[Rfam]
RNA sequence: AGGUUCCGCGUCGACGCAUCUGCUGAUGAAGCUGCAUAGGGCAGAUUCUGAGCCGGGAGCUGCAGCUUCCCGGCACUGAUCUUCCAUUUAUGCAAACUGAGGAUGCGGCUCUUUUU
Numbered sequence: 001a002g003g004u005u006c007c008g009c010g011u012c013g014a015c016g017c018a019u020c021u022g023c024u025g026a027u028g029a030a031g032c033u034g035c036a037u038a039g040g041g042c043a044g045a046u047u048c049u050g051a052g053c054c055g056g057g058a059g060c061u062g063c064a065g066c067u068u069c070c071c072g073g074c075a076c077u078g079a080u081c082u083u084c085c086a087u088u089u090a091u092g093c094a095a096a097c098u099g100a101g102g103a104u105g106c107g108g109c110u111c112u113u114u115u116u
Stems, first nucleotide, its partner, number of pairs: 013109001015107007033094005039085003044080001047079002050076001052074008
RNA: Small nucleolar RNA SNORD90
Organism: Python bivittatus